[Rfam]
RNA sequence: UCAUUUGAGAUGAAGAUAUGGGUGAUGAUCAAUGCUUACGAUUUUGGUCAAUUUAUGUUAGCAAUUUAAUUCUUUUUCAUCCAUAUUUUCAUCUCGAAUUU
Numbered sequence: 001u002c003a004u005u006u007g008a009g010a011u012g013a014a015g016a017u018a019u020g021g022g023u024g025a026u027g028a029u030c031a032a033u034g035c036u037u038a039c040g041a042u043u044u045u046g047g048u049c050a051a052u053u054u055a056u057g058u059u060a061g062c063a064a065u066u067u068a069a070u071u072c073u074u075u076u077u078c079a080u081c082c083a084u085a086u087u088u089u090c091a092u093c094u095c096g097a098a099u100u101u
Stems, first nucleotide, its partner, number of pairs: 003099018024081005031074002034071001036069003040065001044064003048060001050059003